[Rfam]
RNA sequence: UGUGUAGAAGCAGGAAAAUAUGCCGUGUUUUAUCUUGGUAAAUCCUUGCUUCUCACCGU
Numbered sequence: 001u002g003u004g005u006a007g008a009a010g011c012a013g014g015a016a017a018a019u020a021u022g023c024c025g026u027g028u029u030u031u032a033u034c035u036u037g038g039u040a041a042a043u044c045c046u047u048g049c050u051u052c053u054c055a056c057c058g059u
Stems, first nucleotide, its partner, number of pairs: 002056003006053006013047002017043001022039003